[Rfam]
RNA sequence: UAGGCAGAUGCCAAGAUACCUGAUGGCCAGGCUGGUCAUGAGAAGACAAUGACAACAAUUCUUCCCGCCUUCGCAGGUGCAAACACCCUGUACGGUGCAG
Numbered sequence: 001u002a003g004g005c006a007g008a009u010g011c012c013a014a015g016a017u018a019c020c021u022g023a024u025g026g027c028c029a030g031g032c033u034g035g036u037c038a039u040g041a042g043a044a045g046a047c048a049a050u051g052a053c054a055a056c057a058a059u060u061c062u063u064c065c066c067g068c069c070u071u072c073g074c075a076g077g078u079g080c081a082a083a084c085a086c087c088c089u090g091u092a093c094g095g096u097g098c099a100g
Stems, first nucleotide, its partner, number of pairs: 003012001025032001034061002077098001079096002

The record is a 100-nucleotide RNA, which matches "Pyrrolysine insertion sequence mttB" in Rfam. A reference for the family is Theil Have et al. (2013), "Effects of using coding potential, sequence conservation and mRNA structure conservation for predicting pyrroly-sine containing genes", BMC Bioinformatics. Gene Ontology term of the family: pyrrolysine incorporation.